About this RNA: A member of the RNA family "permuted transfer-messenger RNA" from Rhodospirillum rubrum, 228 nucleotides long. From the family's description: Bacterial tmRNA, also known as 10Sa RNA or SsrA, is named for its dual tRNA and mRNA-like properties. Its role is to liberate the mRNA from a stalled ribosome. To accomplish this part of the tmRNA is used as a reading frame that ends in a translation stop signal.
RNA sequence: GACGCUAAACCCUUUAUGGAAUAAGCGUUGUGGACCCGGGGGCGGUACCCGGCGCCUCCACCAUUCGCCCAAGUCUCCGGCCUCAGCGCCGGAGACCGGGUUCCUGGGGGCGAAAUAGGAUCGACACGCGUGGUAAAGAUAAAGGUUGUGUUCGGCAUGGUAUCCACCGUUAUCGGGCCAACUCUGACAAGUGCCAACGACAACGUUGAACUUGCCGCUGCGGCCUAA
Numbered sequence: 001g002a003c004g005c006u007a008a009a010c011c012c013u014u015u016a017u018g019g020a021a022u023a024a025g026c027g028u029u030g031u032g033g034a035c036c037c038g039g040g041g042g043c044g045g046u047a048c049c050c051g052g053c054g055c056c057u058c059c060a061c062c063a064u065u066c067g068c069c070c071a072a073g074u075c076u077c078c079g080g081c082c083u084c085a086g087c088g089c090c091g092g093a094g095a096c097c098g099g100g101u102u103c104c105u106g107g108g109g110g111c112g113a114a115a116u117a118g119g120a121u122c123g124a125c126a127c128g129c130g131u132g133g134u135a136a137a138g139a140u141a142a143a144g145g146u147u148g149u150g151u152u153c154g155g156c157a158u159g160g161u162a163u164c165c166a167c168c169g170u171u172a173u174c175g176g177g178c179c180a181a182c183u184c185u186g187a188c189a190a191g192u193g194c195c196a197a198c199g200a201c202a203a204c205g206u207u208g209a210a211c212u213u214g215c216c217g218c219u220g221c222g223g224c225c226u227a228a
Base pairs, nucleotide, nucleotide: 001152002151003150004149005148014142015141016140017139026130027129028128030127031126032125036052037051038050039049040048053112054111055110056109057108058107059106153169154168155167
Background: Lineage of the source: Bacteria > Pseudomonadota > Rhodospirillaceae > Rhodospirillum > Rhodospirillum rubrum.